[Rfam]
RNA sequence: ACAUAAUCUAACGCGUAGUUUAUGCUUACUUUACAGUGAGCUCAUAAUGGGGAUGAUGCCAUAUCAGUAACUGUAAAUGUUUCGUCACGGCUGAAGAGGACCCUAGUUGGUCCUAAAACGGCCUGAGGUAGAGGGGUUUUAGUCGGUAGGUCCGAGGACUUCUUCCUCGGGAAUCCGACACUACCCAGUCGUACGGACGGCUGGGUGUCUUCUGAAGAUUUCCCCUCUUCCACGAAA
Numbered sequence: 001a002c003a004u005a006a007u008c009u010a011a012c013g014c015g016u017a018g019u020u021u022a023u024g025c026u027u028a029c030u031u032u033a034c035a036g037u038g039a040g041c042u043c044a045u046a047a048u049g050g051g052g053a054u055g056a057u058g059c060c061a062u063a064u065c066a067g068u069a070a071c072u073g074u075a076a077a078u079g080u081u082u083c084g085u086c087a088c089g090g091c092u093g094a095a096g097a098g099g100a101c102c103c104u105a106g107u108u109g110g111u112c113c114u115a116a117a118a119c120g121g122c123c124u125g126a127g128g129u130a131g132a133g134g135g136g137u138u139u140u141a142g143u144c145g146g147u148a149g150g151u152c153c154g155a156g157g158a159c160u161u162c163u164u165c166c167u168c169g170g171g172a173a174u175c176c177g178a179c180a181c182u183a184c185c186c187a188g189u190c191g192u193a194c195g196g197a198c199g200g201c202u203g204g205g206u207g208u209c210u211u212c213u214g215a216a217g218a219u220u221u222c223c224c225c226u227c228u229u230c231c232a233c234g235a236a237a
Stems, first nucleotide, its partner, number of pairs: 081236005127231002130228002133224003142179005151171008181207001183206005
Shown here is a 237-nucleotide RNA from Agrilus planipennis, a member of the family "R2 RNA element". Rfam's curators write: This family represents the 3' UTR region of the R2 retrotransposable element. This family is known to interact with the R2-encoded reverse transcriptase in a reaction known as target primed reverse transcription (TPRT). On this family, see Ruschak et al., RNA 2004: "Secondary structure models of the 3' untranslated regions of diverse R2 RNAs". The organism belongs to Agrilus, within Eukaryota. Rfam 15.1 lists 3,698 matches to the family in 74 species. The family's RNA type in Rfam is cis-regulatory element. Pairs were carried over by alignment from the consensus structure, which is taken from published work.